A member of the RNA family "RT-2 RNA" from Collinsella aerofaciens, 225 nucleotides long.
RNA sequence: UAUUGCCAGACCGAGUAGGCCCCAGAGCCGAAAGCAGAGCGCGAAGAGGAAGGAAGGCGCGACCGUCGGGCAUGCGCCCGUAAAUACGCACCCCGCGAGGGUGGCCGGACGCUGCUUGCAUGGCGCGGCGCUCCGUGGCUUCGCCGCGUUUCAUGGCCAUACCUCAAGCGGCUGCCAGAGCCACAUUGCAAGCCGCGCGGGGUGCCUCCUGUGAACUCCGAGCAA
Numbered sequence: 001u002a003u004u005g006c007c008a009g010a011c012c013g014a015g016u017a018g019g020c021c022c023c024a025g026a027g028c029c030g031a032a033a034g035c036a037g038a039g040c041g042c043g044a045a046g047a048g049g050a051a052g053g054a055a056g057g058c059g060c061g062a063c064c065g066u067c068g069g070g071c072a073u074g075c076g077c078c079c080g081u082a083a084a085u086a087c088g089c090a091c092c093c094c095g096c097g098a099g100g101g102u103g104g105c106c107g108g109a110c111g112c113u114g115c116u117u118g119c120a121u122g123g124c125g126c127g128g129c130g131c132u133c134c135g136u137g138g139c140u141u142c143g144c145c146g147c148g149u150u151u152c153a154u155g156g157c158c159a160u161a162c163c164u165c166a167a168g169c170g171g172c173u174g175c176c177a178g179a180g181c182c183a184c185a186u187u188g189c190a191a192g193c194c195g196c197g198c199g200g201g202g203u204g205c206c207u208c209c210u211g212u213g214a215a216c217u218c219c220g221a222g223c224a225a
Base pairs, nucleotide, nucleotide: 004041005040006039019028020027067080068079069078070077088205089204090203091202092201093200094199095198096197097165098164099163100162102159103158104157105156106155111119112118122150123149124148125147126146127145128144129143130142168196169195170194171193172192
The sequence is in the family's curated seed alignment.